Rfam assigns this 105-nucleotide sequence from Propylenella binzhouense to the family "Glycine riboswitch aptamer". A search with the family's covariance model found it, with a score of 44 bits. The organism belongs to Propylenella, within Bacteria.
[Rfam]
RNA sequence: CACUCUGGAAAGCAGCCGGCGUCUCCCCGGAUCGGGAGGCGACCGGCUCACCGACGGAGUAACCGGGCGAAAGCCCGGGAAUCUCUCAGGUCCUGCGACAGAGGG
Numbered sequence: 001c002a003c004u005c006u007g008g009a010a011a012g013c014a015g016c017c018g019g020c021g022u023c024u025c026c027c028c029g030g031a032u033c034g035g036g037a038g039g040c041g042a043c044c045g046g047c048u049c050a051c052c053g054a055c056g057g058a059g060u061a062a063c064c065g066g067g068c069g070a071a072a073g074c075c076c077g078g079g080a081a082u083c084u085c086u087c088a089g090g091u092c093c094u095g096c097g098a099c100a101g102a103g104g105g
Stems, first nucleotide, its partner, number of pairs: 001105001003103005014048006050091003053087002057085003063078004